Rfam assigns this 177-nucleotide sequence from Roseateles sp. DAIF2 to the family "FMN riboswitch aptamer (RFN element)". It scores 96 bits against the family's covariance model. Pairs were carried over by alignment from the consensus structure, which is taken from published work.
RNA sequence: ACACGUCUUCAGGGCGGGGUGAAACUCCCCACCGGCGGUAGGCGGGUCCGGCAUCGAUCGACAUCGACGAUGGCGAGCCCGCGAGCCCGCGAGCGCCCGAGCCUCCCCGGCUCGGGGUCAGCAGAUCUGGUGCGAUGCCAGGGCCGACGGUCACAGUCCGGAUGAAAGAAGAUGUGC
Numbered sequence: 001a002c003a004c005g006u007c008u009u010c011a012g013g014g015c016g017g018g019g020u021g022a023a024a025c026u027c028c029c030c031a032c033c034g035g036c037g038g039u040a041g042g043c044g045g046g047u048c049c050g051g052c053a054u055c056g057a058u059c060g061a062c063a064u065c066g067a068c069g070a071u072g073g074c075g076a077g078c079c080c081g082c083g084a085g086c087c088c089g090c091g092a093g094c095g096c097c098c099g100a101g102c103c104u105c106c107c108c109g110g111c112u113c114g115g116g117g118u119c120a121g122c123a124g125a126u127c128u129g130g131u132g133c134g135a136u137g138c139c140a141g142g143g144c145c146g147a148c149g150g151u152c153a154c155a156g157u158c159c160g161g162a163u164g165a166a167a168g169a170a171g172a173u174g175u176g177c
Stems, first nucleotide, its partner, number of pairs: 003175008017029003031157002033146002035090004093122002126142005148160003
Dot-bracket structure: ..((((((((......(((.......))).[[((((((................................................))))..((..........................))...(((((.......)))))..)).(((.....]]))).......))))))))..